[Rfam]
RNA sequence: UUUCUGCCAUGAUGAGCUGCAUAUUCAGUCCGUGUUUCAAAUGAUCACUCUGAUUAUACAUAUGCCCUGAGCAGAGA
Numbered sequence: 001u002u003u004c005u006g007c008c009a010u011g012a013u014g015a016g017c018u019g020c021a022u023a024u025u026c027a028g029u030c031c032g033u034g035u036u037u038c039a040a041a042u043g044a045u046c047a048c049u050c051u052g053a054u055u056a057u058a059c060a061u062a063u064g065c066c067c068u069g070a071g072c073a074g075a076g077a
Stems, first nucleotide, its partner, number of pairs: 001077007
Small nucleolar RNA SNORD126: a 77-nucleotide RNA from Sarcophilus harrisii. The literature on the family includes a 2006 paper in Nucleic Acids Res by Yang et al., "snoSeeker: an advanced computational package for screening of guide and orphan snoRNA genes in the human genome". NCBI's taxonomy places the organism under Eukaryota, Bilateria, Vertebrata, Euteleostomi, Sarcophilus. Pairs were carried over by alignment from the consensus structure, which was predicted with WAR. It scores 86 bits against the family's covariance model.